[Rfam]
RNA sequence: AAAUUGCCCUCUAAGUUUUGCAACUGUAGCAGUUUUGGCCUCCAAAGCCAAUUUUUGGUAAAAAAAAUAAAAAAUGUGGCACCUCACUUACGGUGCCACGUCAGCGUAGACUGGGUUAAAAUUGGUCUUGGAGGCCAAAACUGCUACAGUUGUAAAACUUAAGGGACAAUUU
Numbered sequence: 001a002a003a004u005u006g007c008c009c010u011c012u013a014a015g016u017u018u019u020g021c022a023a024c025u026g027u028a029g030c031a032g033u034u035u036u037g038g039c040c041u042c043c044a045a046a047g048c049c050a051a052u053u054u055u056u057g058g059u060a061a062a063a064a065a066a067a068u069a070a071a072a073a074a075u076g077u078g079g080c081a082c083c084u085c086a087c088u089u090a091c092g093g094u095g096c097c098a099c100g101u102c103a104g105c106g107u108a109g110a111c112u113g114g115g116u117u118a119a120a121a122u123u124g125g126u127c128u129u130g131g132a133g134g135c136c137a138a139a140a141c142u143g144c145u146a147c148a149g150u151u152g153u154a155a156a157a158c159u160u161a162a163g164g165g166a167c168a169a170u171u172u
Stems, first nucleotide, its partner, number of pairs: 001172002004169003008165001012161034074101002077098007